The record is a 73-nucleotide RNA sequence from Cisticola juncidis, which matches "mir-30 microRNA precursor family" in Rfam. A reference for the family is Ambros (2001), "microRNAs: tiny regulators with great potential", Cell.
RNA sequence: UUAGUUCCUGUAAACAUCCUACACUCAGCUGUAACAAGUGGUGGGGCUGGGGAGUGGAUGUUUGCUCAAUUGA
Numbered sequence: 001u002u003a004g005u006u007c008c009u010g011u012a013a014a015c016a017u018c019c020u021a022c023a024c025u026c027a028g029c030u031g032u033a034a035c036a037a038g039u040g041g042u043g044g045g046g047c048u049g050g051g052g053a054g055u056g057g058a059u060g061u062u063u064g065c066u067c068a069a070u071u072g073a
Stems, first nucleotide, its partner, number of pairs: 002072005010065010021055002024051007
Dot-bracket structure: .(((((...((((((((((.((.(((((((..............)))))))..))))))))))))..))))).
Its family is annotated with gene silencing by miRNA and RISC complex in the Gene Ontology. The organism belongs to Cisticola, within Eukaryota. From the family's description: This family consists of the mammalian microRNA (miRNA) precursor mir-30a. Animal miRNAs are transcribed as ~70nt precursors and subsequently processed by the Dicer enzyme to give a ~22nt product. In this case the mature sequence comes from both the 3' (miR-30) and 5' (mir-97-6) arms of the precursor. The extents of the hairpin precursors are not generally known and are estimated based on hairpin prediction. Rfam 15.1 lists 3,879 matches to the family in 647 species.